[Rfam]
RNA sequence: AUUUCAUCAAGAGCAGCUGAGGGACUGGCCCGGUGACGCUGCGGCAACCUGCUAUUACAGAAAGGUGCCAAUUCCAACGGAAGGUUCCGGCAGAUGAAUA
Dot-bracket structure: ..((((((....(((((...(((..[[[)))......)))))((((.(((.((.....)).).))))))...(]]].((((....))))..)))))))..
This 100-nucleotide RNA from Megasphaera sp. AM44-1BH belongs to the Rfam family "SAM riboswitch aptamer (S box leader)". The family's consensus secondary structure is taken from published work.